[Rfam]
About this RNA
Shown here is a 180-nucleotide RNA sequence from Streptomyces sp. Ru87, a member of the family "c-di-AMP riboswitch aptamer (ydaO/yuaA leader)". The match comes from Rfam's covariance-model search (60 bits). Lineage of the source: Bacteria > Bacillati > Actinomycetes > Kitasatosporales > Streptomyces. Rfam's curators write: This family represents a conserved RNA structure found upstream of the ydaO and yuaA genes in Bacillus subtilis and related genes in other bacteria.
RNA sequence: AACACCACAACGCAUCACGGCAGGAGCGGGGGAACCAAGGUAAGUGCCGGACCGUGUGAUCCACACGGCACGGCUUGGGGUGAAGACGCACGCCGCGGCGGUACACGCCACCGCACCCGCGUCCGGGCAACUCCAGCCCGAACCCGACAGCUCACCUCGUAGGCGUAGGAGAGGAAAUAC
Numbered sequence: 001a002a003c004a005c006c007a008c009a010a011c012g013c014a015u016c017a018c019g020g021c022a023g024g025a026g027c028g029g030g031g032g033a034a035c036c037a038a039g040g041u042a043a044g045u046g047c048c049g050g051a052c053c054g055u056g057u058g059a060u061c062c063a064c065a066c067g068g069c070a071c072g073g074c075u076u077g078g079g080g081u082g083a084a085g086a087c088g089c090a091c092g093c094c095g096c097g098g099c100g101g102u103a104c105a106c107g108c109c110a111c112c113g114c115a116c117c118c119g120c121g122u123c124c125g126g127g128c129a130a131c132u133c134c135a136g137c138c139c140g141a142a143c144c145c146g147a148c149a150g151c152u153c154a155c156c157u158c159g160u161a162g163g164c165g166u167a168g169g170a171g172a173g174g175a176a177a178u179a180c
Base pairs, nucleotide, nucleotide: 003165005163006162011024026160027159028158029157030156031155036077037076038075039074078145079144080143086122087121088120089119125139126138127137128136